About this RNA:
The family of this 72-nucleotide RNA from Mucilaginibacter robiniae is "Fluoride riboswitch aptamer (crcB RNA motif)".
RNA sequence: UUGCAGUAAGGAAAUGGUGUCUUCCGGUUGCUUUGCAACGAACCGCAUAUUGCUGAUGGCGCCUGCAAAUAA
Numbered sequence: 001u002u003g004c005a006g007u008a009a010g011g012a013a014a015u016g017g018u019g020u021c022u023u024c025c026g027g028u029u030g031c032u033u034u035g036c037a038a039c040g041a042a043c044c045g046c047a048u049a050u051u052g053c054u055g056a057u058g059g060c061g062c063c064u065g066c067a068a069a070u071a072a
Stems, first nucleotide, its partner, number of pairs: 010025004016063006045053002
Dot-bracket structure: .........[[[[..((((((]]]]...................((.....))....)))))).........
The organism belongs to Mucilaginibacter, within Bacteria.